[Rfam]
This 100-nucleotide sequence from Amphibacillus xylanus belongs to the Rfam family "Purine riboswitch aptamer". Riboswitches are metabolite binding domains within certain messenger RNAs that serve as precision sensors for their corresponding targets. The organism belongs to Amphibacillus xylanus, within Bacteria. Pairs were carried over by alignment from the consensus structure, which is taken from published work.
RNA sequence: ACAAUUUAUAUUAAAUCACCUCAUAUAAAUUUGAGAAUAUGGCUCAAAAGUCUCUACCCGUUACCGUAAAUAACGGACUAUGAGGGAAGAUGGAACAGAC
Numbered sequence: 001a002c003a004a005u006u007u008a009u010a011u012u013a014a015a016u017c018a019c020c021u022c023a024u025a026u027a028a029a030u031u032u033g034a035g036a037a038u039a040u041g042g043c044u045c046a047a048a049a050g051u052c053u054c055u056a057c058c059c060g061u062u063a064c065c066g067u068a069a070a071u072a073a074c075g076g077a078c079u080a081u082g083a084g085g086g087a088a089g090a091u092g093g094a095a096c097a098g099a100c
Stems, first nucleotide, its partner, number of pairs: 019085007030048006058076006